Rfam assigns this 101-nucleotide sequence from Lentibacillus amyloliquefaciens to the family "Glycine riboswitch aptamer". Rfam's curators write: This family represents the bacterial glycine riboswitch. Rfam links the family to the GO term glycine biosynthetic process.

RNA sequence: CUCUGGAGAGUGUUUACACAGUAAACCACCCACGAAGCAAGCACUUUUUCUGUAAUGAAUCCGAUUGCAAAAGUGUGCAACUUUCUGGUUGAAGGACAGAG
Numbered sequence: 001c002u003c004u005g006g007a008g009a010g011u012g013u014u015u016a017c018a019c020a021g022u023a024a025a026c027c028a029c030c031c032a033c034g035a036a037g038c039a040a041g042c043a044c045u046u047u048u049u050c051u052g053u054a055a056u057g058a059a060u061c062c063g064a065u066u067g068c069a070a071a072a073g074u075g076u077g078c079a080a081c082u083u084u085c086u087g088g089u090u091g092a093a094g095g096a097c098a099g100a101g
Base pairs, nucleotide, nucleotide: 001101002100003099004098005097012026013025014024015023028089029088030087032084035083036082037081041076042075043074044073045072046071047070048069
The organism belongs to Lentibacillus, within Bacteria.